[Rfam]
RNA sequence: CAUACGGUAUCAGUUGAAAAACACUGACAGCGGUAUGGCUUCAAACAGAGGU
Numbered sequence: 001c002a003u004a005c006g007g008u009a010u011c012a013g014u015u016g017a018a019a020a021a022c023a024c025u026g027a028c029a030g031c032g033g034u035a036u037g038g039c040u041u042c043a044a045a046c047a048g049a050g051g052u
Base pairs, nucleotide, nucleotide: 001037002036003035004034005033007031008030011026012025013024014023015021